[Rfam]
Overview:
Shown here is a 47-nucleotide RNA from Gossypium mustelinum, a member of the family "Plastid-ycf3 group II-D1 intron". Rfam links the family to the GO term Group II intron splicing. Plastid rpl16 is a non-coding RNA (ncRNA) recognised in plastids. The base pairs follow the family's consensus structure, which was predicted with LocARNA. The organism belongs to Gossypium, within Eukaryota.

RNA sequence: AUUCCUUCUACCGUGUAUCCCUGAUUAAUGUAACCUCAGAUGCUUCA
Numbered sequence: 001a002u003u004c005c006u007u008c009u010a011c012c013g014u015g016u017a018u019c020c021c022u023g024a025u026u027a028a029u030g031u032a033a034c035c036u037c038a039g040a041u042g043c044u045u046c047a
Stems, first nucleotide, its partner, number of pairs: 010025001012023002032044001034042001
Dot-bracket structure: .........(.((........)).)......(.(.......).)...